[Rfam]
RNA: Rhodo-rpoB RNA
Organism: Maritimibacter alkaliphilus
Nucleotides: 093
Stems, first nucleotide, its partner, number of pairs: 001043005010031008064093004069087005
Number, partner (000 for none) and nucleotide at each position: 001043g002042g003041a004040u005039c006000g007000g008000g009000c010031g011030g012029a013028a014027a015026c016025c017024u018000g019000u020000g021000g022000g023000a024017a025016g026015g027014u028013u029012u030011c031010c032000a033000g034000g035000u036000a037000u038000g039005g040004a041003u042002c043001c044000g045000a046000a047000c048000c049000c050000c051000c052000g053000u054000u055000u056000c057000g058000a059000a060000c061000g062000g063000c064093g065092u066091g067090c068000a069087g070086g071085c072084c073083g074000g075000u076000g077000c078000c079000c080000c081000g082000g083073c084072g085071g086070c087069c088000c089000c090067g091066c092065g093064c